[Rfam]
RNA: Vault RNA
Organism: Callithrix jacchus
RNA sequence: GGGCUGGCUUUAGUUCAGCAGUUACUUCAACAAUGCUUUCUAUAGUGGAAACACUACCACUCUGCGUGGUUUGAGACCCGCGGGCGCCCUCCAGCUUUUAA
Numbered sequence: 001g002g003g004c005u006g007g008c009u010u011u012a013g014u015u016c017a018g019c020a021g022u023u024a025c026u027u028c029a030a031c032a033a034u035g036c037u038u039u040c041u042a043u044a045g046u047g048g049a050a051a052c053a054c055u056a057c058c059a060c061u062c063u064g065c066g067u068g069g070u071u072u073g074a075g076a077c078c079c080g081c082g083g084g085c086g087c088c089c090u091c092c093a094g095c096u097u098u099u100a101a
Stems, first nucleotide, its partner, number of pairs: 002096006013085004018081002021078001026075005